[Rfam]
RNA sequence: AUCAUCAGUAGUGGUUAAUACUAUCUCAAGAUAAUAUUAAUUACAAUUUUUUUCCAUAGAAACCUAAUGUUUCGGUUAUCUCGAUUCUUCACAGCCAGGUUUUGAUGGCUUUCAUUAUUGAGGGUUUAUCGGUACCUGGCUUGAGUUAAUACUGGAAUUUGAGUGACUGAUUCUAUUUUUCAACCCAAUAGCUGAAUGGAUUUUGACCACCCCCAAACAGGGUGGCUACAAUUUCCAUUUCGUUUCCGGUUUCUUAGAUCAUAAUCUGUUAUGAAGGAGCGAUCCUCUUUUUGGGGUUCGAAUUGCAUGUUUCUCAGAGGGUUGCGUAAUGGCAAUCUGAGAGUUUGGGAUAUCUGCUGUGCUCUUCUUCAUGUCAGGACAUUU
Numbered sequence: 001a002u003c004a005u006c007a008g009u010a011g012u013g014g015u016u017a018a019u020a021c022u023a024u025c026u027c028a029a030g031a032u033a034a035u036a037u038u039a040a041u042u043a044c045a046a047u048u049u050u051u052u053u054c055c056a057u058a059g060a061a062a063c064c065u066a067a068u069g070u071u072u073c074g075g076u077u078a079u080c081u082c083g084a085u086u087c088u089u090c091a092c093a094g095c096c097a098g099g100u101u102u103u104g105a106u107g108g109c110u111u112u113c114a115u116u117a118u119u120g121a122g123g124g125u126u127u128a129u130c131g132g133u134a135c136c137u138g139g140c141u142u143g144a145g146u147u148a149a150u151a152c153u154g155g156a157a158u159u160u161g162a163g164u165g166a167c168u169g170a171u172u173c174u175a176u177u178u179u180u181c182a183a184c185c186c187a188a189u190a191g192c193u194g195a196a197u198g199g200a201u202u203u204u205g206a207c208c209a210c211c212c213c214c215a216a217a218c219a220g221g222g223u224g225g226c227u228a229c230a231a232u233u234u235c236c237a238u239u240u241c242g243u244u245u246c247c248g249g250u251u252u253c254u255u256a257g258a259u260c261a262u263a264a265u266c267u268g269u270u271a272u273g274a275a276g277g278a279g280c281g282a283u284c285c286u287c288u289u290u291u292u293g294g295g296g297u298u299c300g301a302a303u304u305g306c307a308u309g310u311u312u313c314u315c316a317g318a319g320g321g322u323u324g325c326g327u328a329a330u331g332g333c334a335a336u337c338u339g340a341g342a343g344u345u346u347g348g349g350a351u352a353u354c355u356g357c358u359g360u361g362c363u364c365u366u367c368u369u370c371a372u373g374u375c376a377g378g379a380c381a382u383u384u
Stems, first nucleotide, its partner, number of pairs: 008052001010050002012045002014041007022033004058254007069173001072170008081161001083159006092143002094140007102132005109124006144153003194240007203231003207225005266377003270373001272371008280300003284296004305362005311356001313349006319338007
Small nucleolar RNA snR37: a 384-nucleotide RNA from Lachancea kluyveri. Gene Ontology terms of the family: nucleolus and RNA processing. It is one of the family's seed sequences. The family is grouped with related families in Rfam's "SNORA64 clan". The family's RNA type in Rfam is H/ACA-box small nucleolar RNA.